[Rfam]
RNA sequence: GUAUUCUAUGGGGUGCAAACUUUAAAUGCAACUUAAGUACUAAUUAUUUUAUCAGACCCUUAUGUAAAUCAUGCAUUACUGCUAGCCAACAUGAAUAUUACAUA
Numbered sequence: 001g002u003a004u005u006c007u008a009u010g011g012g013g014u015g016c017a018a019a020c021u022u023u024a025a026a027u028g029c030a031a032c033u034u035a036a037g038u039a040c041u042a043a044u045u046a047u048u049u050u051a052u053c054a055g056a057c058c059c060u061u062a063u064g065u066a067a068a069u070c071a072u073g074c075a076u077u078a079c080u081g082c083u084a085g086c087c088a089a090c091a092u093g094a095a096u097a098u099u100a101c102a103u104a
Stems, first nucleotide, its partner, number of pairs: 005095001007093004011087002015082003022036004027031001037057002040055002043052001062076005
Mitochondrial DNA control region secondary structure A: a 104-nucleotide sequence from Macaca mulatta. Lineage of the source: Eukaryota > Bilateria > Boreoeutheria > Cercopithecinae > Macaca. The literature on the family includes a 2008 paper in Mol Biol Evol by Pereira et al., "Evidence for variable selective pressures at a large secondary structure of the human mitochondrial DNA control region". Rfam classes the family as an antisense RNA.